[Rfam]
RNA sequence: CUCGUCUGAGGGGACAAGAGGAUCACCCUCGCCGUCGCUUCGGCCAGUGCGUCGGGCUGGGCCCUGACAAGCCACCUGAGGAGAGGUUCGGAGCCGGGCCCGGACCCCGGCGAUUGCCGCCCGCUUCUCCUGCUUCUGGUCUCACGAGGUGUUUCCCGCCUCGCACCCCCACCUCUGGACUUGCCUUGCCUUCUCUCUCCGCGUGUGGAGGGAGCCAGCGCUUAGGCCGGAGCGAGCCUGGGGGCCGCCCGGCGUGAAGGCAUCGCGGGGACCGAUUCACCAUG
Numbered sequence: 001c002u003c004g005u006c007u008g009a010g011g012g013g014a015c016a017a018g019a020g021g022a023u024c025a026c027c028c029u030c031g032c033c034g035u036c037g038c039u040u041c042g043g044c045c046a047g048u049g050c051g052u053c054g055g056g057c058u059g060g061g062c063c064c065u066g067a068c069a070a071g072c073c074a075c076c077u078g079a080g081g082a083g084a085g086g087u088u089c090g091g092a093g094c095c096g097g098g099c100c101c102g103g104a105c106c107c108c109g110g111c112g113a114u115u116g117c118c119g120c121c122c123g124c125u126u127c128u129c130c131u132g133c134u135u136c137u138g139g140u141c142u143c144a145c146g147a148g149g150u151g152u153u154u155c156c157c158g159c160c161u162c163g164c165a166c167c168c169c170c171a172c173c174u175c176u177g178g179a180c181u182u183g184c185c186u187u188g189c190c191u192u193c194u195c196u197c198u199c200c201g202c203g204u205g206u207g208g209a210g211g212g213a214g215c216c217a218g219c220g221c222u223u224a225g226g227c228c229g230g231a232g233c234g235a236g237c238c239u240g241g242g243g244g245c246c247g248c249c250c251g252g253c254g255u256g257a258a259g260g261c262a263u264c265g266c267g268g269g270g271a272c273c274g275a276u277u278c279a280c281c282a283u284g
Stems, first nucleotide, its partner, number of pairs: 001013003018030004034062003083154003087149001127148003131144001181218003185214003194209003228251003232248003
RNA: HIF-1 alpha IRES
Organism: Macaca mulatta